[Rfam]
RNA sequence: AGGAAACUAAUGCUCUUUAGAUAUUUGUCUAGAAGGUUUCUCGUGAGAGAAGCCCCC
Numbered sequence: 001a002g003g004a005a006a007c008u009a010a011u012g013c014u015c016u017u018u019a020g021a022u023a024u025u026u027g028u029c030u031a032g033a034a035g036g037u038u039u040c041u042c043g044u045g046a047g048a049g050a051a052g053c054c055c056c057c
Stems, first nucleotide, its partner, number of pairs: 035054008
Annotation
The record is a 57-nucleotide RNA from Perca flavescens, which matches "U7 small nuclear RNA" in Rfam. It scores 46 bits against the family's covariance model. The source organism's lineage runs through Eukaryota, Osteoglossocephalai, Neoteleostei, Perciformes and Perca. The literature on the family includes a 1994 paper in Nucleic Acids Res by Spycher et al., "3' end processing of mouse histone pre-mRNA: evidence for additional base-pairing between U7 snRNA and pre-mRNA".